[Rfam]
RNA: UnaL2 LINE 3' element
RNA sequence: AUGUAACGUGAUUGUAAGUCGCUUUGGAUAAAAGCGUCAGCUAAAUGACAUAAU
Dot-bracket structure: ............(((....((((((.....))))))...)).)...........
Numbered sequence: 001a002u003g004u005a006a007c008g009u010g011a012u013u014g015u016a017a018g019u020c021g022c023u024u025u026g027g028a029u030a031a032a033a034g035c036g037u038c039a040g041c042u043a044a045a046u047g048a049c050a051u052a053a054u
Stems, first nucleotide, its partner, number of pairs: 013043001014041002020036006